[Rfam]
Nucleotides: 075
Base pairs, nucleotide, nucleotide: 014026016024017023033069038065039064043060045058047056048055049054
Number, partner (000 for none) and nucleotide at each position: 001000c002000u003000u004000g005000a006000c007000g008000g009000a010000g011000c012000c013000c014026a015000g016024c017023c018000a019000c020000a021000a022000c023017g024016g025000g026014u027000g028000g029000u030000c031000g032000u033069c034000c035000c036000c037000a038065c039064g040000g041000g042000c043060c044000c045058g046000g047056c048055c049054g050000u051000a052000c053000g054049u055048g056047g057000a058045c059000a060043g061000c062000a063000g064039c065038g066000c067000c068000u069033g070000c071000g072000c073000c074000u075000c

Shown here is a 75-nucleotide RNA from Streptomyces calvus, a member of the family "ASpks TB sRNA". The match comes from Rfam's covariance-model search (72 bits).